Shown here is a 233-nucleotide sequence from Microvirga subterranea, a member of the family "permuted transfer-messenger RNA". Lineage of the source: Bacteria > Pseudomonadota > Alphaproteobacteria > Hyphomicrobiales > Microvirga. It scores 133 bits against the family's covariance model. Bacterial tmRNA, also known as 10Sa RNA or SsrA, is named for its dual tRNA and mRNA-like properties. Its role is to liberate the mRNA from a stalled ribosome. To accomplish this part of the tmRNA is used as a reading frame that ends in a translation stop signal. The broken mRNA is replaced in the ribosome by the tmRNA and translation of the tmRNA leads to addition of a proteolysis tag to the incomplete protein enabling recognition by a protease. Recently a number of permuted tmRNA genes have been found encoded in two parts. tmRNAs have been identified in eubacteria and some chloroplasts but are absent from archaeal and eukaryote nuclear genomes. By type it is a non-coding RNA gene.
RNA sequence: GAUCGUAGAGGCCUAGUGGCAUAGGCGUUCAGGACGCGGGUUCAAUUCCCGCCGCCUCCACCACGAGCCGAUCGGGCGCACUUUGCUGGGUCGGCUUCUGGAGGGGGCGACUUGGGUUCGACUGGGCGCAGUAAGGACUGGGCUGCGAUUAGGCUGAGCUACGGCCUUGAUAGUGCACAUUCACAAAUGCCAACGACAACGUUGACAUGGGUGCGGUUCGCCUCGCGGCGUAA
Numbered sequence: 001g002a003u004c005g006u007a008g009a010g011g012c013c014u015a016g017u018g019g020c021a022u023a024g025g026c027g028u029u030c031a032g033g034a035c036g037c038g039g040g041u042u043c044a045a046u047u048c049c050c051g052c053c054g055c056c057u058c059c060a061c062c063a064c065g066a067g068c069c070g071a072u073c074g075g076g077c078g079c080a081c082u083u084u085g086c087u088g089g090g091u092c093g094g095c096u097u098c099u100g101g102a103g104g105g106g107g108c109g110a111c112u113u114g115g116g117u118u119c120g121a122c123u124g125g126g127c128g129c130a131g132u133a134a135g136g137a138c139u140g141g142g143c144u145g146c147g148a149u150u151a152g153g154c155u156g157a158g159c160u161a162c163g164g165c166c167u168u169g170a171u172a173g174u175g176c177a178c179a180u181u182c183a184c185a186a187a188u189g190c191c192a193a194c195g196a197c198a199a200c201g202u203u204g205a206c207a208u209g210g211g212u213g214c215g216g217u218u219c220g221c222c223u224c225g226c227g228g229c230g231u232a233a
Stems, first nucleotide, its partner, number of pairs: 001150005014140004026128003030124003036052005053109007151167004
Dot-bracket structure: (((((........((((........(((.(((...(((((.......)))))(((((((...........................................)))))))............))).)))........)))).....)))))((((.........))))..................................................................